[Rfam]
RNA sequence: AUCCCGCCAAGGGAAGAUAUCUGUAUGAUAAAUAUAAAUGUCUUUUCCAGGGUUAUGGAU
Numbered sequence: 001a002u003c004c005c006g007c008c009a010a011g012g013g014a015a016g017a018u019a020u021c022u023g024u025a026u027g028a029u030a031a032a033u034a035u036a037a038a039u040g041u042c043u044u045u046u047c048c049a050g051g052g053u054u055a056u057g058g059a060u
Stems, first nucleotide, its partner, number of pairs: 001060004006053003011048005016042005022036005

The family of this 60-nucleotide RNA sequence from Bombyx mori is "mir-2818 microRNA precursor family". Its family is annotated with RISC complex and miRNA-mediated post-transcriptional gene silencing in the Gene Ontology. The sequence is in the family's curated seed alignment. Pairs were carried over by alignment from the consensus structure, which was predicted with RNAalifold. The source organism's lineage runs through Eukaryota, Opisthokonta, Lepidoptera, Bombycidae and Bombyx.